[Rfam]
RNA sequence: CAGAGAUAUAGAGGCGCGGAAUCCAUCAGUAGCUGCCAUCAGGUGCUCAAACACCGGUGAGGGACAGCGAAAGGGGCUUCCGCCGAAAUGAAGCGUCGUUUGAGCGCGCUUUGUUGGGCGUCUGGAGAAUAUCCAUGCGACUGUCGCAAUGUUUUUGCGGAGUGCUAUAUUCGAU
Numbered sequence: 001c002a003g004a005g006a007u008a009u010a011g012a013g014g015c016g017c018g019g020a021a022u023c024c025a026u027c028a029g030u031a032g033c034u035g036c037c038a039u040c041a042g043g044u045g046c047u048c049a050a051a052c053a054c055c056g057g058u059g060a061g062g063g064a065c066a067g068c069g070a071a072a073g074g075g076g077c078u079u080c081c082g083c084c085g086a087a088a089u090g091a092a093g094c095g096u097c098g099u100u101u102g103a104g105c106g107c108g109c110u111u112u113g114u115u116g117g118g119c120g121u122c123u124g125g126a127g128a129a130u131a132u133c134c135a136u137g138c139g140a141c142u143g144u145c146g147c148a149a150u151g152u153u154u155u156u157g158c159g160g161a162g163u164g165c166u167a168u169a170u171u172c173g174a175u
Stems, first nucleotide, its partner, number of pairs: 006170006016083006023076002032068004037063001039061001087115010116142002119139003123135004144160006